[Rfam]
About this RNA: This 87-nucleotide sequence from Triticum aestivum belongs to the Rfam family "MIR1120/MIR1122 microRNA precursor family". Pairs were carried over by alignment from the consensus structure, which was predicted with RNAalifold. Rfam links the family to the GO terms RISC complex and miRNA-mediated post-transcriptional gene silencing.
RNA sequence: AUACUCCCUCCAUCCCUUAAUAUAAGAGCGUUUUUGACACUAGUGCAGUGUAAAAAACGCUCUAAUAUUAUGGGAAGGAGGGAGUAU
Numbered sequence: 001a002u003a004c005u006c007c008c009u010c011c012a013u014c015c016c017u018u019a020a021u022a023u024a025a026g027a028g029c030g031u032u033u034u035u036g037a038c039a040c041u042a043g044u045g046c047a048g049u050g051u052a053a054a055a056a057a058c059g060c061u062c063u064a065a066u067a068u069u070a071u072g073g074g075a076a077g078g079a080g081g082g083a084g085u086a087u
Stems, first nucleotide, its partner, number of pairs: 003085003007081005013075004019069005025063011037051005

The match comes from Rfam's covariance-model search (91 bits). On this family, see Yao et al., Genome Biol 2007: "Cloning and characterization of microRNAs from wheat (Triticum aestivum L.)".